[Rfam]
RNA sequence: GUCUGGUCCACCAUUCCUCUCGACUGGCGCCGAAUGUCGCAUCAGUCUUGUCGAAUGGUGGGUUAGCU
Numbered sequence: 001g002u003c004u005g006g007u008c009c010a011c012c013a014u015u016c017c018u019c020u021c022g023a024c025u026g027g028c029g030c031c032g033a034a035u036g037u038c039g040c041a042u043c044a045g046u047c048u049u050g051u052c053g054a055a056u057g058g059u060g061g062g063u064u065a066g067c068u
Stems, first nucleotide, its partner, number of pairs: 003066014019050001022047006029040002